This 64-nucleotide RNA from Myotis brandtii belongs to the Rfam family "mir-9242 microRNA precursor family". The base pairs follow the family's consensus structure, which was predicted with RNAalifold. The match comes from Rfam's covariance-model search (65 bits). Taxonomically the source falls in Myotis (Eukaryota, Eumetazoa, Craniata, Euteleostomi).
[Rfam]
RNA sequence: GGCCUCCCUCUGCGGGGCGAUUGAUCGCAGGGUCCCCAGAUCAAUGGCCCCACAGAGGGAGGCC
Numbered sequence: 001g002g003c004c005u006c007c008c009u010c011u012g013c014g015g016g017g018c019g020a021u022u023g024a025u026c027g028c029a030g031g032g033u034c035c036c037c038a039g040a041u042c043a044a045u046g047g048c049c050c051c052a053c054a055g056a057g058g059g060a061g062g063c064c
Stems, first nucleotide, its partner, number of pairs: 001064012014051005020045007030037002